[Rfam]
RNA: U11 spliceosomal RNA
RNA sequence: UAAAAGGGUGCGUGGCGAUAUUCUUUAUGCUUACAAGGGGUAUCAAAUGCCAUAUGAACUUUAUUGUUCAUGCAGAAUCGUCAUCAAGAGAUUUUGCGCACAUAAUUUUUUGAGUUUUAUGGGCGGUUGUCUUGGCUUCGCUUAAGCCGACGCUGCCCUCCU
Numbered sequence: 001u002a003a004a005a006g007g008g009u010g011c012g013u014g015g016c017g018a019u020a021u022u023c024u025u026u027a028u029g030c031u032u033a034c035a036a037g038g039g040g041u042a043u044c045a046a047a048u049g050c051c052a053u054a055u056g057a058a059c060u061u062u063a064u065u066g067u068u069c070a071u072g073c074a075g076a077a078u079c080g081u082c083a084u085c086a087a088g089a090g091a092u093u094u095u096g097c098g099c100a101c102a103u104a105a106u107u108u109u110u111u112g113a114g115u116u117u118u119a120u121g122g123g124c125g126g127u128u129g130u131c132u133u134g135g136c137u138u139c140g141c142u143u144a145a146g147c148c149g150a151c152g153c154u155g156c157c158c159u160c161c162u
Stems, first nucleotide, its partner, number of pairs: 008101005013052005053072007073096007121158007129151003